[Rfam]
RNA sequence: UUGUCAGAACUUUCCACAAGUCGUAUAAAUCUUUCGCCUUUCAAAAAAAUUAGCGUGUGGAUAGUUCACUCAUGAGAACUUUGCAAUUUUUCCAGCCUCUCUACACUAAGAGGCU
Numbered sequence: 001u002u003g004u005c006a007g008a009a010c011u012u013u014c015c016a017c018a019a020g021u022c023g024u025a026u027a028a029a030u031c032u033u034u035c036g037c038c039u040u041u042c043a044a045a046a047a048a049a050u051u052a053g054c055g056u057g058u059g060g061a062u063a064g065u066u067c068a069c070u071c072a073u074g075a076g077a078a079c080u081u082u083g084c085a086a087u088u089u090u091u092c093c094a095g096c097c098u099c100u101c102u103a104c105a106c107u108a109a110g111a112g113g114c115u
Stems, first nucleotide, its partner, number of pairs: 004075003008066004013061006028051003032047003094115007
Shown here is a 115-nucleotide RNA sequence from Holothuria leucospilota, a member of the family "U5 spliceosomal RNA". For this family Rfam cites "The uRNA database" (Zwieb, Nucleic Acids Res, 1997). The family's RNA type in Rfam is spliceosomal small nuclear RNA. Taxonomically the source falls in Holothuria (Eukaryota, Opisthokonta, Deuterostomia, Echinodermata).